This 110-nucleotide RNA sequence from Clostridium sp. FS41 belongs to the Rfam family "TPP riboswitch aptamer (THI element)".
RNA sequence: ACAAUUACAACAGGGAGCUUGUAGCGCAGGCUGAGAGGAAGUAAUCGAACUUCGACCUAUUAUACCUGAUUUGGAUAAUGCCAACGUAGGGAAAUAUGGAACAUACAGGA
Numbered sequence: 001a002c003a004a005u006u007a008c009a010a011c012a013g014g015g016a017g018c019u020u021g022u023a024g025c026g027c028a029g030g031c032u033g034a035g036a037g038g039a040a041g042u043a044a045u046c047g048a049a050c051u052u053c054g055a056c057c058u059a060u061u062a063u064a065c066c067u068g069a070u071u072u073g074g075a076u077a078a079u080g081c082c083a084a085c086g087u088a089g090g091g092a093a094a095u096a097u098g099g100a101a102c103a104u105a106c107a108g109g110a
Base pairs, nucleotide, nucleotide: 006098007097009095012058013057014056017031018030019029020028021027038053039052040051041050042049065090066089067088068087071084072083073082074081
The base pairs follow the family's consensus structure, which is taken from published work. Gene Ontology term of the family: thiamine pyrophosphate binding.